[Rfam]
RNA sequence: CUCUCGCCUGAAAUGGCACUGGAAGAAUUCACGGGUUUCUCCACACAGACCCGUGGUUCUCUCGUGCCAUACCAGGAGACCG
Numbered sequence: 001c002u003c004u005c006g007c008c009u010g011a012a013a014u015g016g017c018a019c020u021g022g023a024a025g026a027a028u029u030c031a032c033g034g035g036u037u038u039c040u041c042c043a044c045a046c047a048g049a050c051c052c053g054u055g056g057u058u059c060u061c062u063c064g065u066g067c068c069a070u071a072c073c074a075g076g077a078g079a080c081c082g
Stems, first nucleotide, its partner, number of pairs: 004079002007076004013070006021062002025058002029056006
RNA: mir-263 microRNA precursor family
Organism: Cloeon dipterum